[Rfam]
RNA: Small nucleolar RNA SNORA79
RNA sequence: CGACCCGCGUUCCCCCCGUCGCCGCCAGCCGCGGGCGCUCGGGGUUUUAGCGGCGUCGCAGAAAAAGCGGCGGCUCUUUCUUCACCCGGAGGAGCCAGACCGGGGGUCUGGUGGCUCCGCCGGAAUUUGGGGAGUCGCAUAAAU
Numbered sequence: 001c002g003a004c005c006c007g008c009g010u011u012c013c014c015c016c017c018g019u020c021g022c023c024g025c026c027a028g029c030c031g032c033g034g035g036c037g038c039u040c041g042g043g044g045u046u047u048u049a050g051c052g053g054c055g056u057c058g059c060a061g062a063a064a065a066a067g068c069g070g071c072g073g074c075u076c077u078u079u080c081u082u083c084a085c086c087c088g089g090a091g092g093a094g095c096c097a098g099a100c101c102g103g104g105g106g107u108c109u110g111g112u113g114g115c116u117c118c119g120c121c122g123g124a125a126u127u128u129g130g131g132g133a134g135u136c137g138c139a140u141a142a143a144u
Base pairs, nucleotide, nucleotide: 001058002057003056004055005053006052007051008050014044015043016042017041018040020037021036022035023034072136073135074134075133076132077131086123087122088121089120091118092117093116094115095114096110097109098108099107100106